Rfam assigns this 124-nucleotide RNA from Branchiostoma floridae to the family "U5 spliceosomal RNA".
It scores 86 bits against the family's covariance model.
Lineage of the source: Eukaryota > Deuterostomia > Cephalochordata > Amphioxiformes > Branchiostoma.
Rfam describes the family as follows. U5 RNA is a component of both types of known spliceosome.
RNA sequence: UUACUCUGGUUUUCUUUCAAACCACCACGCACAAAUCUUUCGCCUUUUACUAAAGAUUUCCGUGGAGGGGAACAGUCAAUGAGUCUAUAACUCAAUUUUUCUCUGCCCUACUUCGCACGGGGCU
Numbered sequence: 001u002u003a004c005u006c007u008g009g010u011u012u013u014c015u016u017u018c019a020a021a022c023c024a025c026c027a028c029g030c031a032c033a034a035a036u037c038u039u040u041c042g043c044c045u046u047u048u049a050c051u052a053a054a055g056a057u058u059u060c061c062g063u064g065g066a067g068g069g070g071a072a073c074a075g076u077c078a079a080u081g082a083g084u085c086u087a088u089a090a091c092u093c094a095a096u097u098u099u100u101c102u103c104u105g106c107c108c109u110a111c112u113u114c115g116c117a118c119g120g121g122g123c124u
Stems, first nucleotide, its partner, number of pairs: 003084004009073011033059008105123005